[Rfam]
RNA sequence: ACUGGAGGACUAAUCAGACUGAGUCUGAAGAGUGAGACUCAGAUGACAGUAGCCUCCUAAAAAGAAAAGGGAUGGAGAGAGCAGUCCUACUUACAGAAAAGCAAAGGACUGACUGUGCCAUCCAACACAA
Numbered sequence: 001a002c003u004g005g006a007g008g009a010c011u012a013a014u015c016a017g018a019c020u021g022a023g024u025c026u027g028a029a030g031a032g033u034g035a036g037a038c039u040c041a042g043a044u045g046a047c048a049g050u051a052g053c054c055u056c057c058u059a060a061a062a063a064g065a066a067a068a069g070g071g072a073u074g075g076a077g078a079g080a081g082c083a084g085u086c087c088u089a090c091u092u093a094c095a096g097a098a099a100a101g102c103a104a105a106g107g108a109c110u111g112a113c114u115g116u117g118c119c120a121u122c123c124a125a126c127a128c129a130a
Stems, first nucleotide, its partner, number of pairs: 003059001004057005017044001019042001021040006069123003080114002082111007092103001094101001
RNA: Small Cajal body specific RNA 4